The record is a 92-nucleotide RNA sequence from Imhoffiella purpurea, which matches "SAH (S-adenosyl-L-homocysteine) riboswitch aptamer" in Rfam.
NCBI's taxonomy places the organism under Bacteria, Pseudomonadota, Chromatiales, Chromatiaceae, Imhoffiella.

[Rfam]
RNA sequence: CCCGCCGAGGAGCGUUGCGACCCGGAUCCGCCGAUGGCGGAGCGGGCCAGGCUCGGCGAUGGGGGCGACAUUUCCAACGGCGCUCACUCACG
Numbered sequence: 001c002c003c004g005c006c007g008a009g010g011a012g013c014g015u016u017g018c019g020a021c022c023c024g025g026a027u028c029c030g031c032c033g034a035u036g037g038c039g040g041a042g043c044g045g046g047c048c049a050g051g052c053u054c055g056g057c058g059a060u061g062g063g064g065g066c067g068a069c070a071u072u073u074c075c076a077a078c079g080g081c082g083c084u085c086a087c088u089c090a091c092g
Stems, first nucleotide, its partner, number of pairs: 003058006021046004